[Rfam]
RNA sequence: UGUUACAAACGGGAUGAAGCUCCCCUUUGGAAAAAUCCGAACCGCUGAUAACAGCUGAUGGCUUCUACGAGAAA
Numbered sequence: 001u002g003u004u005a006c007a008a009a010c011g012g013g014a015u016g017a018a019g020c021u022c023c024c025c026u027u028u029g030g031a032a033a034a035a036u037c038c039g040a041a042c043c044g045c046u047g048a049u050a051a052c053a054g055c056u057g058a059u060g061g062c063u064u065c066u067a068c069g070a071g072a073a074a
Stems, first nucleotide, its partner, number of pairs: 011024003016065006044055004
Shown here is a 74-nucleotide RNA from Pelotomaculum schinkii, a member of the family "Fluoride riboswitch aptamer (crcB RNA motif)". It scores 45 bits against the family's covariance model.